[Rfam]
RNA sequence: GCGCUUACAUUUCCUUAUCAUUGCUCCGCCUCAGUCGUUAUCUGAGCACUGGACGGAGAACUGAUAAGGGCGCGUGAGCUG
Numbered sequence: 001g002c003g004c005u006u007a008c009a010u011u012u013c014c015u016u017a018u019c020a021u022u023g024c025u026c027c028g029c030c031u032c033a034g035u036c037g038u039u040a041u042c043u044g045a046g047c048a049c050u051g052g053a054c055g056g057a058g059a060a061c062u063g064a065u066a067a068g069g070g071c072g073c074g075u076g077a078g079c080u081g
Stems, first nucleotide, its partner, number of pairs: 012070009021060002025057003030052002
Dot-bracket structure: ...........(((((((((((..(((..((...................))..))).)).)))))))))...........
Overview
This 81-nucleotide sequence from Hyalella azteca belongs to the Rfam family "mir-184 microRNA precursor family". Taxonomically the source falls in Hyalella (Eukaryota, Eumalacostraca, Talitrida, Talitroidea). Rfam links the family to the GO terms RISC complex and gene silencing by miRNA. The family has 66 seed sequences and 948 matches in Rfam 15.1.